[Rfam]
RNA sequence: GGUCUGUGAUGAGAAUUAGCCAAAUCUGACCGCCGGAAGAUCAAAUCAUCUUCCAGGUGUCAUGAUUUGUAUGCAGUUCUGAGA
Numbered sequence: 001g002g003u004c005u006g007u008g009a010u011g012a013g014a015a016u017u018a019g020c021c022a023a024a025u026c027u028g029a030c031c032g033c034c035g036g037a038a039g040a041u042c043a044a045a046u047c048a049u050c051u052u053c054c055a056g057g058u059g060u061c062a063u064g065a066u067u068u069g070u071a072u073g074c075a076g077u078u079c080u081g082a083g084a
Base pairs, nucleotide, nucleotide: 031059032058033057034056038051039050040049041048

The record is an 84-nucleotide sequence from Upupa epops, which matches "Small nucleolar RNA U2-19" in Rfam. Pairs were carried over by alignment from the consensus structure, which is taken from published work. By type it is a C/D-box small nucleolar RNA.